[Rfam]
RNA sequence: UUGGUUCUGGUUCACGCCACCGCACUCCGCGGGACGACCCAGCGACC
Numbered sequence: 001u002u003g004g005u006u007c008u009g010g011u012u013c014a015c016g017c018c019a020c021c022g023c024a025c026u027c028c029g030c031g032g033g034a035c036g037a038c039c040c041a042g043c044g045a046c047c
Base pairs, nucleotide, nucleotide: 003047004046005045007042008041009040010039015036016035018033020032021031022030023029